[Rfam]
RNA sequence: ACGGAAGUCGGGUGAGGCCAAGGCCGAAUCGGAAGAGAAGGUUCGUCCUCCCAAGCCAGACGUCCCAGCACGGAACCUGCGAACCCACGCGGAGCCCACGCCGCGAUAAUGGCAGAAGUGUUGCGGGCCUGCGUAAUAGCGAAGAGCGAACGCCAAGCCGGGAUCCCUUGGGUGGGAUCGGCAGCCGUAGCGCAUCGCGACGACGCCGAGGCCACCCACGCAACCUACUGAGCACGCUUGGUAUCCAGAGUUCCGUGCUAGCGGGCGGCGAGCCGAGUCAUUCGGAGCGCCGCCCGCUUCAUUUG
Dot-bracket structure: ..((..(((.((...((...((..((((((.........))))))..)).))...)).)))..)).((((((((..(((.((..(((.(((..((....(((........)))......(((((((((((((((..(.((((...(((.((((.....(..((((((......)))))).)..).)))..))).)))).)..))))..))))).....)))))).......)).))).)))..)))))...)))))))).((((((((((..(((.......)))..))))))))))........
About this RNA
The family of this 305-nucleotide RNA from Mycolicibacterium madagascariense is "Mycobacterium smegmatis small RNA 1". About the family: Mycobacterium smegmatis small RNA 1 is highly expressed during stationary phase of growth. Pairs were carried over by alignment from the consensus structure, which was predicted with CMfinder. It scores 252 bits against the family's covariance model. The organism belongs to Mycobacterium (subgen. Mycolicibacterium), within Bacteria. Gene Ontology term of the family: RNA polymerase binding.